Rfam assigns this 180-nucleotide sequence from Rummeliibacillus stabekisii to the family "Lysine riboswitch aptamer". Pairs were carried over by alignment from the consensus structure, which is taken from published work.
[Rfam]
RNA sequence: AGAUGAGGUAGAGGUCGCGGUAUUCAUGAGUAUAAUCGACGAGGCGAGAAAGCGUUUAGGACUCGAUUAAAAAGGGAAUAUUGCCGAAGUACAAGCAAGCUUUUUAUUGCUAGUGCUGGGGCUGCUAUCGAAAGGUGCAGAACUGUCACGCCAAAGACGGCGUGUUGAGCUAUCUUGAUC
Numbered sequence: 001a002g003a004u005g006a007g008g009u010a011g012a013g014g015u016c017g018c019g020g021u022a023u024u025c026a027u028g029a030g031u032a033u034a035a036u037c038g039a040c041g042a043g044g045c046g047a048g049a050a051a052g053c054g055u056u057u058a059g060g061a062c063u064c065g066a067u068u069a070a071a072a073a074g075g076g077a078a079u080a081u082u083g084c085c086g087a088a089g090u091a092c093a094a095g096c097a098a099g100c101u102u103u104u105u106a107u108u109g110c111u112a113g114u115g116c117u118g119g120g121g122c123u124g125c126u127a128u129c130g131a132a133a134g135g136u137g138c139a140g141a142a143c144u145g146u147c148a149c150g151c152c153a154a155a156g157a158c159g160g161c162g163u164g165u166u167g168a169g170c171u172a173u174c175u176u177g178a179u180c
Base pairs, nucleotide, nucleotide: 006175007174008173009172010171011170017084018083019082020081021080022079023078024077025076033069034068035067036066037065038064039063088117089116090115091114092113094111095110096109097108098107118144119143122140123139124138125137128134147164148163149162150161151160152159